[Rfam]
RNA sequence: UCCUACGUGAUGAUCACAGCUUUAUUUCUGACACCUCAUAUGAAUCCUUGUGAUUCAAUAUUGCUAUACUUCUGAUUGG
Numbered sequence: 001u002c003c004u005a006c007g008u009g010a011u012g013a014u015c016a017c018a019g020c021u022u023u024a025u026u027u028c029u030g031a032c033a034c035c036u037c038a039u040a041u042g043a044a045u046c047c048u049u050g051u052g053a054u055u056c057a058a059u060a061u062u063g064c065u066a067u068a069c070u071u072c073u074g075a076u077u078g079g
Stems, first nucleotide, its partner, number of pairs: 001079002040051004

This 79-nucleotide RNA from Apolygus lucorum belongs to the Rfam family "Small nucleolar RNA Me28S-Gm3255". The family's RNA type in Rfam is C/D-box small nucleolar RNA. Pairs were carried over by alignment from the consensus structure, which was predicted with PFOLD. Rfam 15.1 lists 39 matches to the family in 29 species. Lineage of the source: Eukaryota > Opisthokonta > Eumetazoa > Miridae > Apolygus. A search with the family's covariance model found it, with a score of 46 bits. On this family, see Huang et al., RNA 2005: "Genome-wide analyses of two families of snoRNA genes from Drosophila melanogaster, demonstrating the extensive utilization of introns for coding of snoRNAs".